[Rfam]
RNA sequence: AUAACGACAUUGAAGGGGAAUAGUAGACAGCAAAGCCUUCAGAGAGUGGAACCGUUACGCUGAGAGGUUCCGCAGGAAGUGACUGCUACGAGUCGCCCCGGAGUUGCCUGAGCCAAGUAGGAGCAACCUGUGCUCUACCGAAUUCAGGCCGGCUACAGCCGUUAUCUGUUUGAGUGCCAUGCGGACUUCGUUCGCGUGGAACAAAGGUGGUACCACGGAAGCUAAACCUUUCGUCCUUUAU
Numbered sequence: 001a002u003a004a005c006g007a008c009a010u011u012g013a014a015g016g017g018g019a020a021u022a023g024u025a026g027a028c029a030g031c032a033a034a035g036c037c038u039u040c041a042g043a044g045a046g047u048g049g050a051a052c053c054g055u056u057a058c059g060c061u062g063a064g065a066g067g068u069u070c071c072g073c074a075g076g077a078a079g080u081g082a083c084u085g086c087u088a089c090g091a092g093u094c095g096c097c098c099c100g101g102a103g104u105u106g107c108c109u110g111a112g113c114c115a116a117g118u119a120g121g122a123g124c125a126a127c128c129u130g131u132g133c134u135c136u137a138c139c140g141a142a143u144u145c146a147g148g149c150c151g152g153c154u155a156c157a158g159c160c161g162u163u164a165u166c167u168g169u170u171u172g173a174g175u176g177c178c179a180u181g182c183g184g185a186c187u188u189c190g191u192u193c194g195c196g197u198g199g200a201a202c203a204a205a206g207g208u209g210g211u212a213c214c215a216c217g218g219a220a221g222c223u224a225a226a227c228c229u230u231u232c233g234u235c236c237u238u239u240a241u
Stems, first nucleotide, its partner, number of pairs: 007104002015099004026089001028085003037076003048071006107148006150161003177199009204238004215234007
Dot-bracket structure: ......((......((((.......(.(((......(((........((((((............))))))..)))......)))...)......))))...))..((((((..............................)))))).(((......)))...............(((((((((.....)))))))))....((((.......(((((((......)))))))))))...

T-box leader: a 241-nucleotide RNA sequence from Paenibacillus endophyticus.
A search with the family's covariance model found it, with a score of 103 bits.
Gene Ontology term of the family: tRNA binding.
NCBI's taxonomy places the organism under Bacteria, Bacillati, Bacillota, Bacilli, Paenibacillus.
By type it is a cis-regulatory leader.